[Rfam]
RNA sequence: CUCUCUAGUUGCCAAACCUAUUGCGAAGUAGGGACGGAAAGCUUCGGGUCUUUAAAAAUUAAAGUCGGCUGGGCUGCAUAU
Numbered sequence: 001c002u003c004u005c006u007a008g009u010u011g012c013c014a015a016a017c018c019u020a021u022u023g024c025g026a027a028g029u030a031g032g033g034a035c036g037g038a039a040a041g042c043u044u045c046g047g048g049u050c051u052u053u054a055a056a057a058a059u060u061a062a063a064g065u066c067g068g069c070u071g072g073g074c075u076g077c078a079u080a081u
Stems, first nucleotide, its partner, number of pairs: 012037002017032006040075004045071003048066001050064005
Notes: c-di-GMP-I riboswitch aptamer: an 81-nucleotide sequence from Methyloprofundus sp. The organism belongs to Methyloprofundus, within Bacteria. The family's consensus secondary structure is taken from published work. The match comes from Rfam's covariance-model search (52 bits).